[Rfam]
RNA sequence: CACUAGAGGGUUGUCGCGUAUCCUAACGGGCUUUGCGACAGCCAAAUGUUAAACUGACCUUUUUAGGAGAUCAAUAGUGGCCCGUAUUGCUGGCAUUAAUGUGCCUGAU
Numbered sequence: 001c002a003c004u005a006g007a008g009g010g011u012u013g014u015c016g017c018g019u020a021u022c023c024u025a026a027c028g029g030g031c032u033u034u035g036c037g038a039c040a041g042c043c044a045a046a047u048g049u050u051a052a053a054c055u056g057a058c059c060u061u062u063u064u065a066g067g068a069g070a071u072c073a074a075u076a077g078u079g080g081c082c083c084g085u086a087u088u089g090c091u092g093g094c095a096u097u098a099a100u101g102u103g104c105c106u107g108a109u
Stems, first nucleotide, its partner, number of pairs: 004052001006050002009047001011045003022093002027084004036107002